Nucleotides: 147
Stems, first nucleotide, its partner, number of pairs: 025057005035049003060095011104143001106141011
Number, partner (000 for none) and nucleotide at each position: 001000c002000a003000c004000c005000g006000g007000c008000g009000a010000c011000u012000g013000a014000u015000c016000a017000c018000g019000c020000c021000g022000c023000a024000g025057u026056c027055u028054g029053g030000a031000a032000g033000c034000c035049g036048g037047c038000u039000c040000g041000u042000c043000c044000c045000c046000c047037g048036c049035c050000g051000c052000a053029c054028c055027a056026g057025a058000c059000u060095g061094g062093a063092c064091a065090a066089a067088g068087g069086c070085c071000u072000a073000u074000c075000c076000c077000c078000c079000u080000c081000u082000c083000c084000g085070g086069g087068c088067c089066u090065u091064u092063g093062u094061c095060c096000u097000c098000c099000c100000a101000u102000c103000c104143g105000a106141c107140c108139g109138c110137c111136a112135c113134g114133g115132c116131c117000c118000g119000u120000g121000c122000c123000c124000c125000c126000u127000c128000c129000c130000a131116g132115g133114c134113c135112g136111u137110g138109g139108c140107g141106g142000u143104u144000u145000g146000u147000u